Record summary:
This 152-nucleotide RNA sequence from Adineta steineri belongs to the Rfam family "U11 spliceosomal RNA".

RNA sequence: AAAAAGGGCGUCUGUUUUUUCUUAUUUGGCUAAUAAAUAACACACGGUUAUUUUGUUUUCUUUUGAAAACACCGUGCGGAAUGGUUAUCGAGACAUUUCGGACGCAUAAUCUUUGAAAAUCGGAGCAGUUGAUUUAAUUAAUCGGCGCUCCA
Numbered sequence: 001a002a003a004a005a006g007g008g009c010g011u012c013u014g015u016u017u018u019u020u021c022u023u024a025u026u027u028g029g030c031u032a033a034u035a036a037a038u039a040a041c042a043c044a045c046g047g048u049u050a051u052u053u054u055g056u057u058u059u060c061u062u063u064u065g066a067a068a069a070c071a072c073c074g075u076g077c078g079g080a081a082u083g084g085u086u087a088u089c090g091a092g093a094c095a096u097u098u099c100g101g102a103c104g105c106a107u108a109a110u111c112u113u114u115g116a117a118a119a120u121c122g123g124a125g126c127a128g129u130u131g132a133u134u135u136a137a138u139u140a141a142u143c144g145g146c147g148c149u150c151c152a
Stems, first nucleotide, its partner, number of pairs: 008105005013042004043076006051068004077100007123150004128146005134141002

Its family is annotated with pre-mRNA 5'-splice site binding, mRNA 5'-splice site recognition and U11 snRNP in the Gene Ontology. The family has 72 seed sequences and 2,595 matches in Rfam 15.1. Its Rfam clan is "U1 clan". A reference for the family is Marz et al. (2008), "Evolution of spliceosomal snRNA genes in metazoan animals", J Mol Evol. The family's consensus secondary structure is taken from published work.